[Rfam]
RNA sequence: CGCCCCGAGUCCCCGAUAUAGCCCCCGAUGAGCUCGCAGUAUUUUCCUUAUAUGAUCAGGCCCCGGUGCUGGCGACGCCGCUAGCCCGGAGCCUGAAAAGAUUAUGAAAAUGUGUCCGGCGAAGUGGGGCUGGGGACCGGGAG
Numbered sequence: 001c002g003c004c005c006c007g008a009g010u011c012c013c014c015g016a017u018a019u020a021g022c023c024c025c026c027g028a029u030g031a032g033c034u035c036g037c038a039g040u041a042u043u044u045u046c047c048u049u050a051u052a053u054g055a056u057c058a059g060g061c062c063c064c065g066g067u068g069c070u071g072g073c074g075a076c077g078c079c080g081c082u083a084g085c086c087c088g089g090a091g092c093c094u095g096a097a098a099a100g101a102u103u104a105u106g107a108a109a110a111u112g113u114g115u116c117c118g119g120c121g122a123a124g125u126g127g128g129g130c131u132g133g134g135g136a137c138c139g140g141g142a143g
Stems, first nucleotide, its partner, number of pairs: 001143001003141001005140003009137006021130005056096006063089002068085007